A member of the RNA family "mir-22 microRNA precursor family" from Leptosomus discolor, 87 nucleotides long. Lineage of the source: Eukaryota > Gnathostomata > Amniota > Coelurosauria > Leptosomus. The family's consensus secondary structure was predicted with RNAalifold. On this family, see Lagos-Quintana et al., Science 2001: "Identification of novel genes coding for small expressed RNAs".

RNA sequence: GGCUAACCAGCACCAGUUCUUCAGUGGCAAGCUUUAUGUCCUUCUCUAGUAGCUAAAGCUGCCAGUUGAAGAACUGCCACUCUCUUC
Numbered sequence: 001g002g003c004u005a006a007c008c009a010g011c012a013c014c015a016g017u018u019c020u021u022c023a024g025u026g027g028c029a030a031g032c033u034u035u036a037u038g039u040c041c042u043u044c045u046c047u048a049g050u051a052g053c054u055a056a057a058g059c060u061g062c063c064a065g066u067u068g069a070a071g072a073a074c075u076g077c078c079a080c081u082c083u084c085u086u087c
Stems, first nucleotide, its partner, number of pairs: 006083001010080001017073006026063003030060007